[Rfam]
RNA: Molybdenum/Tungsten riboswitch aptamer (Moco RNA motif)
Organism: Faecalibacterium prausnitzii
RNA sequence: AUACGAGCUUCUUUGAGCAAAGGUGUCUAAACCGUCGGGCAUGACACCGCGCCGCAAUGCUAAGGGCUAUAUAAGCCGGCAUUCAAGGGUGGAGGGGGAAACCCCGCCGCCUUCCCGCAGAAGAAACGCUGCAAUUUGAAAAAAAGAACUCCUCCCAUC
Numbered sequence: 001a002u003a004c005g006a007g008c009u010u011c012u013u014u015g016a017g018c019a020a021a022g023g024u025g026u027c028u029a030a031a032c033c034g035u036c037g038g039g040c041a042u043g044a045c046a047c048c049g050c051g052c053c054g055c056a057a058u059g060c061u062a063a064g065g066g067c068u069a070u071a072u073a074a075g076c077c078g079g080c081a082u083u084c085a086a087g088g089g090u091g092g093a094g095g096g097g098g099a100a101a102c103c104c105c106g107c108c109g110c111c112u113u114c115c116c117g118c119a120g121a122a123g124a125a126a127c128g129c130u131g132c133a134a135u136u137u138g139a140a141a142a143a144a145a146g147a148a149c150u151c152c153u154c155c156c157a158u159c
Stems, first nucleotide, its partner, number of pairs: 009148006017052002022048006032039002056083005087112006094105004113139002